[Rfam]
RNA sequence: UAAGUUCUUCGGGGCAGGGUGCAAGUCCCUACCGGCGGUUAUAGUCCGCGACCCGUUUUAAACGGUUGAUUUGGUGAAAUUCCAAAACCGACAGUAUAGUCUGGAUGAGAGAAGAAAUUA
Numbered sequence: 001u002a003a004g005u006u007c008u009u010c011g012g013g014g015c016a017g018g019g020u021g022c023a024a025g026u027c028c029c030u031a032c033c034g035g036c037g038g039u040u041a042u043a044g045u046c047c048g049c050g051a052c053c054c055g056u057u058u059u060a061a062a063c064g065g066u067u068g069a070u071u072u073g074g075u076g077a078a079a080u081u082c083c084a085a086a087a088c089c090g091a092c093a094g095u096a097u098a099g100u101c102u103g104g105a106u107g108a109g110a111g112a113a114g115a116a117a118u119u120a
Stems, first nucleotide, its partner, number of pairs: 003118001005116006017029003031100002033090002035049004044088002053065002070086005092103003
Dot-bracket structure: ..(.((((((......(((.......))).[[((((((.....[[))))...((.........))....(((((.......)))))]])).(((....]]))).......)))))).)..